[Rfam]
RNA: Fungal signal recognition particle RNA
Organism: Hyaloscypha hepaticicola
RNA sequence: UGGCUGUAAUGGUCAUAAGUGUGGAAGACUUCAACACCCCAGAUUUCUUCACCCAUUUCGUUCGCAAGAACAUCACCAACAGUGCCCAGUUCGAACAUGGCGGUGGUUCCCCACUCGUGCAGGUAACUCACGAUGCUGGUGGGUCCUUGAGCAAUGAAGAAUAUUUCUUGAGGGAGGCUUCACUCUGCAGAGAGAUCUUCACCGUGGUGUGGCGGUAUUGGACUACACUUUGUUGUGUGGUUUGGGUGGUGGGCCUGGGUUGAGUGUCAACCAUUUUU
Numbered sequence: 001u002g003g004c005u006g007u008a009a010u011g012g013u014c015a016u017a018a019g020u021g022u023g024g025a026a027g028a029c030u031u032c033a034a035c036a037c038c039c040c041a042g043a044u045u046u047c048u049u050c051a052c053c054c055a056u057u058u059c060g061u062u063c064g065c066a067a068g069a070a071c072a073u074c075a076c077c078a079a080c081a082g083u084g085c086c087c088a089g090u091u092c093g094a095a096c097a098u099g100g101c102g103g104u105g106g107u108u109c110c111c112c113a114c115u116c117g118u119g120c121a122g123g124u125a126a127c128u129c130a131c132g133a134u135g136c137u138g139g140u141g142g143g144u145c146c147u148u149g150a151g152c153a154a155u156g157a158a159g160a161a162u163a164u165u166u167c168u169u170g171a172g173g174g175a176g177g178c179u180u181c182a183c184u185c186u187g188c189a190g191a192g193a194g195a196u197c198u199u200c201a202c203c204g205u206g207g208u209g210u211g212g213c214g215g216u217a218u219u220g221g222a223c224u225a226c227a228c229u230u231u232g233u234u235g236u237g238u239g240g241u242u243u244g245g246g247u248g249g250u251g252g253g254c255c256u257g258g259g260u261u262g263a264g265u266g267u268c269a270a271c272c273a274u275u276u277u278u
Stems, first nucleotide, its partner, number of pairs: 001015004019276001021274004027268003031263003040257003046253003050249001053246002061070003074239003078234003081229004086221005091215003095210004100205004105146001108143003111139003115133005121128002147151001155201006165194005174185003